This 339-nucleotide RNA sequence from Streptococcus dysgalactiae belongs to the Rfam family "GEBRO RNA". The family's RNA type in Rfam is small RNA. The family's consensus secondary structure is taken from published work. The sequence is in the family's curated seed alignment.

[Rfam]
RNA sequence: AAAAAGAUUUUUUUUUGAGAAUAUUCAAGAAGUUUGGUGUCUUUUUUGAGAUGACACACUCCAGGCGUGAAAGACCGCUGAUAAAAGUGUCCGCACCCCCUAACGGGUUACAAGUAGGGGAGGGCGAAAGUGGGUACAAGUGGGGUGCUAGACCCCCAAAAAGUCCCCUCAAAAGGGACACAUCUAAGGGCUUGAUAGUCUAUGAUGAAUGACACCAAGAGUUGGCUGAUGGCAACAUGAAAGGACACGUGCAAGACCUGAAAAGGUCACUUGUAGGGCACGCAGACGCAAGCAAAAAGCACGUUCAAGACUUGAAAUAGCUUUGAAGUUAUGUAACCU
Dot-bracket structure: ......((((((....))))))..............................(((((......((((........)))).......))))).....[[[[[...((((((((...]]]]]........................(((...............(((((.......))))).((((...(((((....)))))..)))).....)))...............................((((((...((((....))))..(((((.............)))))......))))))(((((.(........).))))).....))))))))